Termite-flg RNA: a 102-nucleotide sequence.
[Rfam]
RNA sequence: GGCCGUUUCGUUCCGUAUGCGGGAAUAAGAGGCGGUUGCGCGAAAUCGUCUGCUGAAAACCGCUCCCGCGGAACGGCUCCGGCAAGGAUAGCCGGAGCAAGC
Numbered sequence: 001g002g003c004c005g006u007u008u009c010g011u012u013c014c015g016u017a018u019g020c021g022g023g024a025a026u027a028a029g030a031g032g033c034g035g036u037u038g039c040g041c042g043a044a045a046u047c048g049u050c051u052g053c054u055g056a057a058a059a060c061c062g063c064u065c066c067c068g069c070g071g072a073a074c075g076g077c078u079c080c081g082g083c084a085a086g087g088a089u090a091g092c093c094g095g096a097g098c099a100a101g102c
Stems, first nucleotide, its partner, number of pairs: 009075008019063004028054002030051008076098008